The record is a 265-nucleotide RNA sequence from Sphaerosporella brunnea, which matches "Fungal signal recognition particle RNA" in Rfam. The organism belongs to Sphaerosporella, within Eukaryota. Rfam 15.1 lists 748 matches to the family in 741 species. The base pairs follow the family's consensus structure, which is taken from published work. Its Rfam clan is "SRP clan". It is annotated as a non-coding RNA gene. On this family, see Wild et al., Curr Opin Struct Biol 2002: "Towards the structure of the mammalian signal recognition particle". Rfam links the family to the GO terms SRP-dependent cotranslational protein targeting to membrane, signal sequence recognition, signal recognition particle, plasma membrane targeting and signal recognition particle, endoplasmic reticulum targeting. A search with the family's covariance model found it, with a score of 115 bits.
RNA sequence: AGCUGUAAUGGCUCAAGUUGAGGAAGCUCUUCCACUUUACGAUGGUUUCUUUCCAUACACCCUGUUCGCUGGUGGUGUCCGGUUCGAAUCCUGUGGCCGCCAUGUCAGCCAGCCUGCGCAAGCGGCUCGGCUGUGGGCGCUAAGACAACAAGUUACCCUUCAGUCCGGAAACGGCGCAGAGAACUUGUUCCACAGGAUGGCGGUAUCGGAUCGCACCGCCAGCGGCCUUGGGAAGGGAUCAUCGUUAGGUUGGGCAACUUCAUUU
Numbered sequence: 001a002g003c004u005g006u007a008a009u010g011g012c013u014c015a016a017g018u019u020g021a022g023g024a025a026g027c028u029c030u031u032c033c034a035c036u037u038u039a040c041g042a043u044g045g046u047u048u049c050u051u052u053c054c055a056u057a058c059a060c061c062c063u064g065u066u067c068g069c070u071g072g073u074g075g076u077g078u079c080c081g082g083u084u085c086g087a088a089u090c091c092u093g094u095g096g097c098c099g100c101c102a103u104g105u106c107a108g109c110c111a112g113c114c115u116g117c118g119c120a121a122g123c124g125g126c127u128c129g130g131c132u133g134u135g136g137g138c139g140c141u142a143a144g145a146c147a148a149c150a151a152g153u154u155a156c157c158c159u160u161c162a163g164u165c166c167g168g169a170a171a172c173g174g175c176g177c178a179g180a181g182a183a184c185u186u187g188u189u190c191c192a193c194a195g196g197a198u199g200g201c202g203g204u205a206u207c208g209g210a211u212c213g214c215a216c217c218g219c220c221a222g223c224g225g226c227c228u229u230g231g232g233a234a235g236g237g238a239u240c241a242u243c244g245u246u247a248g249g250u251u252g253g254g255c256a257a258c259u260u261c262a263u264u265u
Stems, first nucleotide, its partner, number of pairs: 001013003019262005026255001032253002034250003039245014069222010079209005084203003088198009100136004104131003111127004116123002140144001147189006158181003165174003